[Rfam]
RNA sequence: UUACCCUAACACAAUGAAAGCCCUUCCUCUCGAUCAUCCUUAUGGCUCCUAGGCCACGCCAGUGAGAAUUAGGGGAAAUUCUAGCAA
Numbered sequence: 001u002u003a004c005c006c007u008a009a010c011a012c013a014a015u016g017a018a019a020g021c022c023c024u025u026c027c028u029c030u031c032g033a034u035c036a037u038c039c040u041u042a043u044g045g046c047u048c049c050u051a052g053g054c055c056a057c058g059c060c061a062g063u064g065a066g067a068a069u070u071a072g073g074g075g076a077a078a079u080u081c082u083a084g085c086a087a
Base pairs, nucleotide, nucleotide: 034067035066039062040061041058043056044055045054046053047052
A member of the RNA family "BsrC" from Bacillus salacetis, 87 nucleotides long. The base pairs follow the family's consensus structure, which was predicted with CMfinder. Rfam describes the family as follows. The 301 nucleotide sequence from Kouji Nakamura has been trimmed to a highly conserved ~85 nucleotide long core to form this family. The organism belongs to Bacillus, within Bacteria. It scores 77 bits against the family's covariance model. A reference for the family is Saito et al. (2008), "Novel small RNA-encoding genes in the intergenic regions of Bacillus subtilis", Gene.